Shown here is a 187-nucleotide RNA from Sciurus vulgaris, a member of the family "Beta-globin co-transcriptional cleavage ribozyme".
Rfam describes the family as follows. Transcription termination of RNA polymerase II transcripts is proposed to occur by a two stage process.
On this family, see Dye and Proudfoot, Cell 2001: "Multiple transcript cleavage precedes polymerase release in termination by RNA polymerase II".
NCBI's taxonomy places the organism under Eukaryota, Eumetazoa, Sarcopterygii, Mammalia, Sciurus.

RNA sequence: CUUAAGUGUUACCACAAGUGACAUAUUCUAACUUCAUUUCCUUAUUCAGUAUCCACUUAGGUAUAUGCUACAUUCUGGAAUUAUUAGUUUCAAGUGGUCUCUGUCCUCUCCUCCACUCCAAUUCUGAACCUAGCUGGCAAGUAGAAAGUAAUGCAUAUAAUAAGUGGUAAGUAGUUGUGGAAUACUU
Numbered sequence: 001c002u003u004a005a006g007u008g009u010u011a012c013c014a015c016a017a018g019u020g021a022c023a024u025a026u027u028c029u030a031a032c033u034u035c036a037u038u039u040c041c042u043u044a045u046u047c048a049g050u051a052u053c054c055a056c057u058u059a060g061g062u063a064u065a066u067g068c069u070a071c072a073u074u075c076u077g078g079a080a081u082u083a084u085u086a087g088u089u090u091c092a093a094g095u096g097g098u099c100u101c102u103g104u105c106c107u108c109u110c111c112u113c114c115a116c117u118c119c120a121a122u123u124c125u126g127a128a129c130c131u132a133g134c135u136g137g138c139a140a141g142u143a144g145a146a147a148g149u150a151a152u153g154c155a156u157a158u159a160a161u162a163a164g165u166g167g168u169a170a171g172u173a174g175u176u177g178u179g180g181a182a183u184a185c186u187u
Stems, first nucleotide, its partner, number of pairs: 024184004034177001036175003041171006050063004065156004072117001074115001077113002086109002091103002094100001122146005130141002